The record is a 104-nucleotide RNA from Bacillus mesophilum, which matches "TPP riboswitch aptamer (THI element)" in Rfam. Rfam describes the family as follows. Vitamin B(1) in its active form thiamin pyrophosphate (TPP) is an essential coenzyme that is synthesised by coupling of pyrimidine and thiazole moieties in bacteria. The previously detected thiamin-regulatory element, thi box was extended, resulting in a new, highly conserved RNA secondary structure, the THI element, which is widely distributed in eubacteria and also occurs in some archaea. Analysis of operon structures identified a large number of new candidate thiamin-regulated genes, mostly transporters, in various prokaryotic organisms. A search with the family's covariance model found it, with a score of 85 bits. Lineage of the source: Bacteria > Bacilli > Caryophanales > Bacillaceae > Bacillus.

[Rfam]
RNA sequence: UUCUUACACUAGGGGUGUCUUUAUAAGACUGAGAUGGCAGUCAUGCCAAACCCUUUGAACCUGAUCCUGUUAACACUGGCGUAGGGAAGUGCUAUAGAUUAUAA
Number, nucleotide and partner (000 for none) at each position: 001u000002u000003c000004u000005u000006a000007c091008a090009c089010u088011a054012g053013g052014g051015g000016u048017g029018u028019c027020u026021u025022u000023a000024u000025a021026a020027g019028a018029c017030u000031g000032a000033g000034a000035u000036g047037g046038c045039a044040g000041u000042c000043a000044u039045g038046c037047c036048a016049a000050a000051c014052c013053c012054u011055u000056u000057g000058a000059a000060c085061c084062u083063g082064a000065u000066c079067c078068u000069g076070u000071u000072a000073a000074c000075a000076c069077u000078g067079g066080c000081g000082u063083a062084g061085g060086g000087a000088a010089g009090u008091g007092c000093u000094a000095u000096a000097g000098a000099u000100u000101a000102u000103a000104a000